[Rfam]
RNA sequence: GCAUUUACGUGCCCUUAUCAUUCUCUUUGCCCGGUGUGUUUGACAACUGGACGGAGAACUGAUAAGGGCGUGUGCUGUA
Numbered sequence: 001g002c003a004u005u006u007a008c009g010u011g012c013c014c015u016u017a018u019c020a021u022u023c024u025c026u027u028u029g030c031c032c033g034g035u036g037u038g039u040u041u042g043a044c045a046a047c048u049g050g051a052c053g054g055a056g057a058a059c060u061g062a063u064a065a066g067g068g069c070g071u072g073u074g075c076u077g078u079a
Stems, first nucleotide, its partner, number of pairs: 012068009021058006030050002

This 79-nucleotide sequence from Brenthis ino belongs to the Rfam family "mir-184 microRNA precursor family". Rfam links the family to the GO terms RISC complex and gene silencing by miRNA. A search with the family's covariance model found it, with a score of 68 bits. Taxonomically the source falls in Brenthis (Eukaryota, Glossata, Neolepidoptera, Heteroneura). For this family Rfam cites "The developmental miRNA profiles of zebrafish as determined by small RNA cloning" (Chen et al., Genes Dev, 2005).